[Rfam]
ACEA small nucleolar RNA U3: a 252-nucleotide RNA from Coemansia javaensis. On this family, see Speckmann et al., Mol Cell Biol 1999: "Nuclear retention elements of U3 small nucleolar RNA". Rfam 15.1 lists 2,156 matches to the family in 132 species. Small nucleolar RNAs (snoRNAs) are involved in the processing and modification of rRNA in the nucleolus. There are two main classes of snoRNAs: the box C/D class, and the box H/ACA class. U3 snoRNA is a member of the box C/D class. Indeed, the box C/D element is a subset of the six short sequence elements found in all U3 snoRNAs, namely boxes A, A', B, C, C', and D. The U3 snoRNA secondary structure is characterised by a small 5' domain (with boxes A and A'), and a larger 3' domain (with boxes B, C, C', and D), the two domains being linked by a single-stranded hinge. Boxes B and C form the B/C motif, which appears to be exclusive to U3 snoRNAs, and boxes C' and D form the C'/D motif. The latter is functionally similar to the C/D motifs found in other snoRNAs. The 5' domain and the hinge region act as a pre-rRNA-binding domain. The 3' domain has conserved protein-binding sites. Both the box B/C and box C'/D motifs are sufficient for nuclear retention of U3 snoRNA. The box C'/D motif is also necessary for nucleolar localisation, stability and hyper-methylation of U3 snoRNA. Both box B/C and C'/D motifs are involved in specific protein interactions and are necessary for the rRNA processing functions of U3 snoRNA. Its Rfam clan is "U3 clan".
RNA sequence: AAGACUGUACUUUUCAGGAUUAAGUUUACAGUCGAUAUUCAGUAUCUUUGUUCACCGAACAGAGACACACAUUCCAAGUCGGAAGAUGACAGACAGUGCGCCGUCCGUAAAGGGAGGUGUUUCGGGAGGCCCCUCGGGGUUUCUCCUGUCGAUGAUCUUGCCGGCCUGCGCCCUCGCUUACCUUGUGCCUUUUGGCGCGGGAGCGGGACUAGAGUGCGGGUCGGCGAGGACGGUCGCACAUUCUGACGACUU
Numbered sequence: 001a002a003g004a005c006u007g008u009a010c011u012u013u014u015c016a017g018g019a020u021u022a023a024g025u026u027u028a029c030a031g032u033c034g035a036u037a038u039u040c041a042g043u044a045u046c047u048u049u050g051u052u053c054a055c056c057g058a059a060c061a062g063a064g065a066c067a068c069a070c071a072u073u074c075c076a077a078g079u080c081g082g083a084a085g086a087u088g089a090c091a092g093a094c095a096g097u098g099c100g101c102c103g104u105c106c107g108u109a110a111a112g113g114g115a116g117g118u119g120u121u122u123c124g125g126g127a128g129g130c131c132c133c134u135c136g137g138g139g140u141u142u143c144u145c146c147u148g149u150c151g152a153u154g155a156u157c158u159u160g161c162c163g164g165c166c167u168g169c170g171c172c173c174u175c176g177c178u179u180a181c182c183u184u185g186u187g188c189c190u191u192u193u194g195g196c197g198c199g200g201g202a203g204c205g206g207g208a209c210u211a212g213a214g215u216g217c218g219g220g221u222c223g224g225c226g227a228g229g230a231c232g233g234u235c236g237c238a239c240a241u242u243c244u245g246a247c248g249a250c251u252u
Base pairs, nucleotide, nucleotide: 002039003038006034009032010031011030016027017026018025045065046064047063048062049061050060051059052058053057077251078250079249080248081247096239097238098237099236100235101233102232103231104230105229106228110159111158112157113156162223163222164221166219167218168217169216170215171214
The match comes from Rfam's covariance-model search (57 bits).